[Rfam]
RNA: Plant small nucleolar RNA U3
Organism: Musa troglodytarum
RNA sequence: ACGACCUGACUUGAACAGGAUCUGUUUUAUAGAUUCGUACGACUGUCUCUGAGAACUCUAACGAGACAGGCAUCUGAGUCCGGUUGAUGAUACGGGACCUCAGGAUCGGAGCGUGAUUAACGGUGGGGAUCUCUCAAGAUCUUUCACGGUAGUGGAUCGUUCUCAGCUGGCGGUGCCCACCGGUUGGGGUGAUCCUGGGGUUGUCUGACAGACC
Numbered sequence: 001a002c003g004a005c006c007u008g009a010c011u012u013g014a015a016c017a018g019g020a021u022c023u024g025u026u027u028u029a030u031a032g033a034u035u036c037g038u039a040c041g042a043c044u045g046u047c048u049c050u051g052a053g054a055a056c057u058c059u060a061a062c063g064a065g066a067c068a069g070g071c072a073u074c075u076g077a078g079u080c081c082g083g084u085u086g087a088u089g090a091u092a093c094g095g096g097a098c099c100u101c102a103g104g105a106u107c108g109g110a111g112c113g114u115g116a117u118u119a120a121c122g123g124u125g126g127g128g129a130u131c132u133c134u135c136a137a138g139a140u141c142u143u144u145c146a147c148g149g150u151a152g153u154g155g156a157u158c159g160u161u162c163u164c165a166g167c168u169g170g171c172g173g174u175g176c177c178c179a180c181c182g183g184u185u186g187g188g189g190u191g192a193u194c195c196u197g198g199g200g201u202u203g204u205c206u207g208a209c210a211g212a213c214c
Base pairs, nucleotide, nucleotide: 001038002037003035006032007031013027014026015025016024017023018022043069044068045067046066048064049063053059078213079212080211082209097201098200099199100198101197102196103195104194105193106192107191108190110161111160112159113158120150121149123147124146125145126144127142128141129140130139131138132137163187164186165185166184167183168182169181170180172178